About this RNA: A member of the RNA family "Alphaproteobacterial sRNA ar35" from Phyllobacterium myrsinacearum, 127 nucleotides long. Lineage of the source: Bacteria > Pseudomonadati > Pseudomonadota > Phyllobacteriaceae > Phyllobacterium. By type it is a small RNA. On this family, see del Val et al., RNA Biol 2012: "A survey of sRNA families in alpha-proteobacteria".
[Rfam]
RNA sequence: AAGAUGACUGCUGACCAGCUUCAGGCUGGCUAAAAAUAAUUCGUCUUCGCGUCUUUGACCACGGAUGUACUGGCACUGACAGCAGAGAUGAAUUUGAGAAGGUCGGGUUUACCCGGCCUUUUAUUUU
Number, nucleotide and partner (000 for none) at each position: 001a031002a000003g000004a000005u000006g000007a000008c028009u000010g026011c025012u024013g000014a000015c000016c000017a000018g000019c000020u000021u000022c000023a000024g012025g011026c010027u000028g008029g000030c000031u001032a000033a000034a000035a000036a000037u000038a000039a000040u000041u091042c090043g089044u088045c087046u086047u085048c000049g000050c000051g080052u079053c078054u000055u000056u075057g074058a000059c073060c072061a071062c000063g000064g000065a000066u000067g000068u000069a000070c000071u061072g060073g059074c057075a056076c000077u000078g053079a052080c051081a000082g000083c000084a000085g047086a046087g045088a044089u043090g042091a041092a126093u000094u000095u123096g000097a122098g121099a120100a119101g118102g117103u116104c115105g114106g113107g000108u000109u000110u000111a000112c000113c106114c105115g104116g103117c102118c101119u100120u099121u098122u097123a095124u000125u000126u092127u000